A member of the RNA family "mir-399 microRNA precursor family", 115 nucleotides long. From the family's description: mir-399 was identified in both Arabidopsis thaliana and Oryza sativa computationally and was later experimentally verified. mir-399 is thought to target mRNAs coding for a phosphatase transporter. The mature sequence is excised from the 3' arm of the hairpin. For this family Rfam cites "Computational Identification of Plant MicroRNAs and Their Targets, Including a Stress-Induced miRNA" (Jones-Rhoades and Bartel, Mol Cell, 2004). The family's consensus secondary structure was predicted with PFOLD. The family has 13 seed sequences and 2,396 matches in Rfam 15.1. A search with the family's covariance model found it, with a score of 65 bits.
RNA sequence: GGAUUCAUUACCGGGCAAUUACUCCGUUGGCAGUAGCUUGGCCAGAAAUUGCCAAUGGCAAUUUAGUAAUAUUAGCCAGCUCACUGCCAAGGGAGAUUUGCCCCGCAAUGUACCC
Dot-bracket structure: .....((((.(.((((((...((((..(((((((.(............................................).)))))))..))))..)))))).).)))).....
Numbered sequence: 001g002g003a004u005u006c007a008u009u010a011c012c013g014g015g016c017a018a019u020u021a022c023u024c025c026g027u028u029g030g031c032a033g034u035a036g037c038u039u040g041g042c043c044a045g046a047a048a049u050u051g052c053c054a055a056u057g058g059c060a061a062u063u064u065a066g067u068a069a070u071a072u073u074a075g076c077c078a079g080c081u082c083a084c085u086g087c088c089a090a091g092g093g094a095g096a097u098u099u100g101c102c103c104c105g106c107a108a109u110g111u112a113c114c115c
Stems, first nucleotide, its partner, number of pairs: 006110004011105001013103006022095004028089007036081001